RNA sequence: UCGUGCUAGAUGGGGAGGUAGCGGUGCCCUGUAACCUGCAAUCCGCUAUAGCAGGGUCGAAGUCCCAUUUGAGGCAUGAUACUUGUGGAGUCUGCCCUGAAUAAGUGGCGAGGAUAAUUGGGUCCUGCGCAACGGGAACUUAUGAACCCCGCCAGGUCCGGAAGGAAGCAACGGUAAGUAAGUACUCCCGUGUGCCGUAGGGUAGCCUGAUUUGAGUUAACUGUUCAGGUUACGUCUGUGGUAUCAUGUCGAGAAUGGGUGCACGA
Numbered sequence: 001u002c003g004u005g006c007u008a009g010a011u012g013g014g015g016a017g018g019u020a021g022c023g024g025u026g027c028c029c030u031g032u033a034a035c036c037u038g039c040a041a042u043c044c045g046c047u048a049u050a051g052c053a054g055g056g057u058c059g060a061a062g063u064c065c066c067a068u069u070u071g072a073g074g075c076a077u078g079a080u081a082c083u084u085g086u087g088g089a090g091u092c093u094g095c096c097c098u099g100a101a102u103a104a105g106u107g108g109c110g111a112g113g114a115u116a117a118u119u120g121g122g123u124c125c126u127g128c129g130c131a132a133c134g135g136g137a138a139c140u141u142a143u144g145a146a147c148c149c150c151g152c153c154a155g156g157u158c159c160g161g162a163a164g165g166a167a168g169c170a171a172c173g174g175u176a177a178g179u180a181a182g183u184a185c186u187c188c189c190g191u192g193u194g195c196c197g198u199a200g201g202g203u204a205g206c207c208u209g210a211u212u213u214g215a216g217u218u219a220a221c222u223g224u225u226c227a228g229g230u231u232a233c234g235u236c237u238g239u240g241g242u243a244u245c246a247u248g249u250c251g252a253g254a255a256u257g258g259g260u261g262c263a264c265g266a
Base pairs, nucleotide, nucleotide: 001266002265003264004263005262006261009058010057011056012030013029014028015027017025019023035055036054037053038052039051064259065258066257067256068255069254070253073250074249075248076247077246079244080243081242082241083240085239086238087237088236089235094230097228098227099226100225101224102223105221106220107218108217109216116212117211118210119209120208121207122206123205124201125200126199127198128197129196130192131191133190134189135188136187137186138183139182140181141180142179143178149174150173151172157166158165159164